RNA sequence: AAAUAUCUUCAGGGCAGGGUGAAAGUCCCUACCGGCGGUAGCCCGCGAGCAUUUUUGCAGAUUCGGUGAAACUCUGAAGCCGACAGUAAAGUCUGGAUGAAAGAAGGUAAGA
Numbered sequence: 001a002a003a004u005a006u007c008u009u010c011a012g013g014g015c016a017g018g019g020u021g022a023a024a025g026u027c028c029c030u031a032c033c034g035g036c037g038g039u040a041g042c043c044c045g046c047g048a049g050c051a052u053u054u055u056u057g058c059a060g061a062u063u064c065g066g067u068g069a070a071a072c073u074c075u076g077a078a079g080c081c082g083a084c085a086g087u088a089a090a091g092u093c094u095g096g097a098u099g100a101a102a103g104a105a106g107g108u109a110a111g112a
Stems, first nucleotide, its partner, number of pairs: 004109007017029003031092002033082002035046004041080002049058003062078005084095003

This 112-nucleotide RNA sequence from Clostridium celatum belongs to the Rfam family "FMN riboswitch aptamer (RFN element)". It scores 114 bits against the family's covariance model. From the family's description: The RFN element is a highly conserved domain that is found frequently in the 5'-untranslated regions of prokaryotic mRNAs that encode for flavin mononucleotide (FMN) biosynthesis and transport proteins. The base pairs follow the family's consensus structure, which is taken from published work. The organism belongs to Clostridium celatum, within Bacteria.